[Rfam]
RNA: Iron response element I
Organism: Pipistrellus kuhlii
RNA sequence: CUAUCUUUUGGUUCAACAGUGUUUGGACGAAUAG
Numbered sequence: 001c002u003a004u005c006u007u008u009u010g011g012u013u014c015a016a017c018a019g020u021g022u023u024u025g026g027a028c029g030a031a032u033a034g
Base pairs, nucleotide, nucleotide: 001034002033003032004031007030008029010028012027013026014025015024016023017021
Dot-bracket structure: ((((..((.(.((((((...).))))))))))))